Shown here is a 99-nucleotide RNA sequence from Dialister micraerophilus, a member of the family "SAM riboswitch aptamer (S box leader)".
Rfam's curators write: The SAM riboswitch is found upstream of a number of genes which code for proteins involved in methionine or cysteine biosynthesis in Gram-positive bacteria.
NCBI's taxonomy places the organism under Bacteria, Bacillati, Bacillota, Dialister, Dialister micraerophilus.
RNA sequence: AUUUCAUCAAGAGUAGCUGAGGGAUUGGCCCUAUGAAGCUACGGCAACCAUUCAUACUGAAACGGUGCCAAUUCCAUCGGAUUUCCCGAAAGAUGAACA
Numbered sequence: 001a002u003u004u005c006a007u008c009a010a011g012a013g014u015a016g017c018u019g020a021g022g023g024a025u026u027g028g029c030c031c032u033a034u035g036a037a038g039c040u041a042c043g044g045c046a047a048c049c050a051u052u053c054a055u056a057c058u059g060a061a062a063c064g065g066u067g068c069c070a071a072u073u074c075c076a077u078c079g080g081a082u083u084u085c086c087c088g089a090a091a092g093a094u095g096a097a098c099a
Base pairs, nucleotide, nucleotide: 003097004096005095006094007093008092013042014041015040016039017038021031022030023029026076027075028074043069044068045067046066048065049064051061052060053059054058073091078088079087080086